RNA sequence: AAAGUUGUCAUCCUCUGCCGCGAGCAACGCAUGGAUGAAGUCCUUCGGGAUCUCGUCGAAGCGAAUCGGCGACCGGCGCAUUUCCCCGAAUUCUGCAAUCAGCUUUUCAUCACUGCUGUAGACCCUCAGCGGGAUCUGGAGCUGGAUGCUGCGAAGUGCGUCGACGGAAGGCAGGUUGGGGCUUAGAUAAAGGAAGGCACCGCUCAAACUGAGCAGCAGUCCGCAGAAAAUAGCUAAGCCAGACCAAAGGAAAAACUUCAGGAAACGCAUCAAGGUUCUUGGGGUUCCAGGUGG
Numbered sequence: 001a002a003a004g005u006u007g008u009c010a011u012c013c014u015c016u017g018c019c020g021c022g023a024g025c026a027a028c029g030c031a032u033g034g035a036u037g038a039a040g041u042c043c044u045u046c047g048g049g050a051u052c053u054c055g056u057c058g059a060a061g062c063g064a065a066u067c068g069g070c071g072a073c074c075g076g077c078g079c080a081u082u083u084c085c086c087c088g089a090a091u092u093c094u095g096c097a098a099u100c101a102g103c104u105u106u107u108c109a110u111c112a113c114u115g116c117u118g119u120a121g122a123c124c125c126u127c128a129g130c131g132g133g134a135u136c137u138g139g140a141g142c143u144g145g146a147u148g149c150u151g152c153g154a155a156g157u158g159c160g161u162c163g164a165c166g167g168a169a170g171g172c173a174g175g176u177u178g179g180g181g182c183u184u185a186g187a188u189a190a191a192g193g194a195a196g197g198c199a200c201c202g203c204u205c206a207a208a209c210u211g212a213g214c215a216g217c218a219g220u221c222c223g224c225a226g227a228a229a230a231u232a233g234c235u236a237a238g239c240c241a242g243a244c245c246a247a248a249g250g251a252a253a254a255a256c257u258u259c260a261g262g263a264a265a266c267g268c269a270u271c272a273a274g275g276u277u278c279u280u281g282g283g284g285u286u287c288c289a290g291g292u293g294g
Stems, first nucleotide, its partner, number of pairs: 011171002014168004019163002024046001026044001029041002047084005054078002057075002061070002086095001088093001102159002105155003108148004115142003119138004123133003176290006183283002186278002197268002203261002206258002213239002

Overview: Shown here is a 294-nucleotide RNA from Stutzerimonas nosocomialis, a member of the family "anti ponA RNA". Rfam links the family to the GO term response to antibiotic. The base pairs follow the family's consensus structure, which was predicted with RNAfold. Rfam's curators write: Transcribed antisense to the penicillin-binding protein 1A gene called ponA. It was identified by RNAseq and the expression was validated by 5' and 3' RACE experiments. AsponA expression was up or down regulated under different antibiotic stress. Due to its location it may be able to prevent the transcription or translation of the opposite gene. Study by Wurtzel et al. and Ferrara et al. also detected its expression. The organism belongs to Stutzerimonas, within Bacteria. The match comes from Rfam's covariance-model search (161 bits). For this family Rfam cites "The single-nucleotide resolution transcriptome of Pseudomonas aeruginosa grown in body temperature" (Wurtzel et al., PLoS Pathog, 2012).